The family of this 100-nucleotide RNA from Pan paniscus is "Y RNA".
The literature on the family includes a 2000 paper in Nucleic Acids Res by Teunissen et al., "Conserved features of Y RNAs: a comparison of experimentally derived secondary structures".
It is annotated as a non-coding RNA gene.
The source organism's lineage runs through Eukaryota, Metazoa, Deuterostomia, Hominoidea and Pan.
[Rfam]
RNA sequence: GGCUGGCCUGAAUGCAGUGGUGUUUACAACUAACUGAUCACAACCAGUACAGAGUUCUUUUUUUUUCUCCACUCCCACUGCUUCAUUUGAGUAGCCUUAA
Numbered sequence: 001g002g003c004u005g006g007c008c009u010g011a012a013u014g015c016a017g018u019g020g021u022g023u024u025u026a027c028a029a030c031u032a033a034c035u036g037a038u039c040a041c042a043a044c045c046a047g048u049a050c051a052g053a054g055u056u057c058u059u060u061u062u063u064u065u066u067c068u069c070c071a072c073u074c075c076c077a078c079u080g081c082u083u084c085a086u087u088u089g090a091g092u093a094g095c096c097u098u099a100a
Stems, first nucleotide, its partner, number of pairs: 001096005008089001010088002014084001016079005022074001028062001032060002